Archaeal large subunit ribosomal RNA: a 257-nucleotide part of an RNA from Picrophilus oshimae. Its Rfam clan is "LSU clan". The literature on the family includes a 2001 paper in Science by Yusupov et al., "Crystal structure of the ribosome at 5.5 A resolution". Gene Ontology terms of the family: structural constituent of ribosome and ribosome.

RNA sequence: CGAUGCCUGAAGGGAAGGAGCCUUUAGUACGAGAGGAACGGGGGUUCGUGGCCUCUGGUUUACCGGUUGUCCGACAGGGCAGUUGCCGGGUAGCUACGCCAUACGCGAAUAAAGGCUGAAAGCAUCUAAGCCUGAAGUCGCCCCUGAAAAGAGGCAUCGUUAUCAGGUCCCUCCUAAAAGAGGAGCUUGAUAGGACCGGGAUGUAAGUGCUGAGCUUUUGCGAGGCAUUAAGUCCACGGUUACUAAAAGACCGAAUG
Numbered sequence: 001c002g003a004u005g006c007c008u009g010a011a012g013g014g015a016a017g018g019a020g021c022c023u024u025u026a027g028u029a030c031g032a033g034a035g036g037a038a039c040g041g042g043g044g045u046u047c048g049u050g051g052c053c054u055c056u057g058g059u060u061u062a063c064c065g066g067u068u069g070u071c072c073g074a075c076a077g078g079g080c081a082g083u084u085g086c087c088g089g090g091u092a093g094c095u096a097c098g099c100c101a102u103a104c105g106c107g108a109a110u111a112a113a114g115g116c117u118g119a120a121a122g123c124a125u126c127u128a129a130g131c132c133u134g135a136a137g138u139c140g141c142c143c144c145u146g147a148a149a150a151g152a153g154g155c156a157u158c159g160u161u162a163u164c165a166g167g168u169c170c171c172u173c174c175u176a177a178a179a180g181a182g183g184a185g186c187u188u189g190a191u192a193g194g195a196c197c198g199g200g201a202u203g204u205a206a207g208u209g210c211u212g213a214g215c216u217u218u219u220g221c222g223a224g225g226c227a228u229u230a231a232g233u234c235c236a237c238g239g240u241u242a243c244u245a246a247a248a249g250a251c252c253g254a255a256u257g
Base pairs, nucleotide, nucleotide: 001159002158003157004156005155006154007153008152011145012144013143014142017047018046019045021043022042023041024040048102049101050100051099052098056096057095058094063089064088065087066086067085068081069080070079071078072077106140107139108138113133114132115131116130117129166252167251168250169249171185172184173183174182191245192244193243194241195240196239197238198237199235200234201233207228208227209226210225211224214221